This 71-nucleotide sequence belongs to the Rfam family "DUF805 RNA".
It is annotated as a cis-regulatory element.
It is one of the family's seed sequences.
Clan: DUF805 clan.
The family has 46 seed sequences and 281 matches in Rfam 15.1.
RNA sequence: AAUAAGUGGAGACUAGAGACCACUAAAAAAAACGGGACGGAUUCUGAAAAUCCUAAUGAGUAGGAAAAUUA
Dot-bracket structure: .....((((..........))))............[......((........]..........))......
Numbered sequence: 001a002a003u004a005a006g007u008g009g010a011g012a013c014u015a016g017a018g019a020c021c022a023c024u025a026a027a028a029a030a031a032a033c034g035g036g037a038c039g040g041a042u043u044c045u046g047a048a049a050a051u052c053c054u055a056a057u058g059a060g061u062a063g064g065a066a067a068a069u070u071a
Stems, first nucleotide, its partner, number of pairs: 006023004036053001043065002